[Rfam]
RNA sequence: GUCGAGAAAAGGAAGAAAAGAGAGCCUGAGAGCAGUGGGAAUGGGAACAUGGAGGAAAGCCUAACUUGCUUUGUUUUCGCCUCUAGUGUUAGAGGUGAGAAUUCAGUUUGGUAUUCCCGAUGCCUCCUAUUCCUACUGUUCUCAAGCACUCCUUCCUUUUCUUUUUGGCU
Numbered sequence: 001g002u003c004g005a006g007a008a009a010a011g012g013a014a015g016a017a018a019a020g021a022g023a024g025c026c027u028g029a030g031a032g033c034a035g036u037g038g039g040a041a042u043g044g045g046a047a048c049a050u051g052g053a054g055g056a057a058a059g060c061c062u063a064a065c066u067u068g069c070u071u072u073g074u075u076u077u078c079g080c081c082u083c084u085a086g087u088g089u090u091a092g093a094g095g096u097g098a099g100a101a102u103u104c105a106g107u108u109u110g111g112u113a114u115u116c117c118c119g120a121u122g123c124c125u126c127c128u129a130u131u132c133c134u135a136c137u138g139u140u141c142u143c144a145a146g147c148a149c150u151c152c153u154u155c156c157u158u159u160u161c162u163u164u165u166u167g168g169c170u
Stems, first nucleotide, its partner, number of pairs: 010160004015155003020151003025146001027144008036135011048122003052118001054117004059112002
This 170-nucleotide RNA from Triticum urartu belongs to the Rfam family "MIR2118 microRNA precursor family".
The source organism's lineage runs through Eukaryota, Viridiplantae, Embryophyta, commelinids and Triticum.
The match comes from Rfam's covariance-model search (128 bits).